[Rfam]
Nucleotides: 067
Base pairs, nucleotide, nucleotide: 003064005063006062011057012056015053016052020049021048022047023046024045025044026043027042029040
Number, partner (000 for none) and nucleotide at each position: 001000c002000a003064a004000u005063c006062a007000u008000u009000u010000a011057g012056a013000a014000c015053g016052u017000c018000g019000g020049u021048c022047u023046a024045c025044c026043g027042a028000a029040c030000a031000a032000u033000u034000u035000c036000a037000u038000u039000c040029g041000c042027u043026c044025g045024g046023u047022a048021g049020a050000a051000a052016a053015u054000c055000u056012u057011c058000c059000c060000u061000u062006u063005g064003u065000c066000c067000a
Record summary: The record is a 67-nucleotide RNA from Bombyx mori, which matches "mir-2774 microRNA precursor family" in Rfam. A search with the family's covariance model found it, with a score of 51 bits. The organism belongs to Bombyx, within Eukaryota. A reference for the family is Liu et al. (2010), "MicroRNAs of Bombyx mori identified by Solexa sequencing", BMC Genomics.